[Rfam]
RNA sequence: GUUGCCUCUAGAAUAACCAGACGUCAAAGAAAGGAAACUUCAAAUACGACGCCGUUUGGUUCAGACGGGGGCACACAGCAAGUAAACCGAAGCAGUUUGAGGGAAAGGGACGCUUUUUAUGUAGCUCUUCCUGUUCCUUUCCUAGAUAGCUUUGGAUAUUU
Numbered sequence: 001g002u003u004g005c006c007u008c009u010a011g012a013a014u015a016a017c018c019a020g021a022c023g024u025c026a027a028a029g030a031a032a033g034g035a036a037a038c039u040u041c042a043a044a045u046a047c048g049a050c051g052c053c054g055u056u057u058g059g060u061u062c063a064g065a066c067g068g069g070g071g072c073a074c075a076c077a078g079c080a081a082g083u084a085a086a087c088c089g090a091a092g093c094a095g096u097u098u099g100a101g102g103g104a105a106a107g108g109g110a111c112g113c114u115u116u117u118u119a120u121g122u123a124g125c126u127c128u129u130c131c132u133g134u135u136c137c138u139u140u141c142c143u144a145g146a147u148a149g150c151u152u153u154g155g156a157u158a159u160u161u
Stems, first nucleotide, its partner, number of pairs: 003073005009068001015061008023052002088154006100132003104129001107126002110122003135146002
This 161-nucleotide RNA sequence from Carya illinoinensis belongs to the Rfam family "Small nucleolar RNA snoR138".
Taxonomically the source falls in Carya (Eukaryota, Pentapetalae, fabids, Juglandaceae).
The base pairs follow the family's consensus structure, which was predicted with mfold.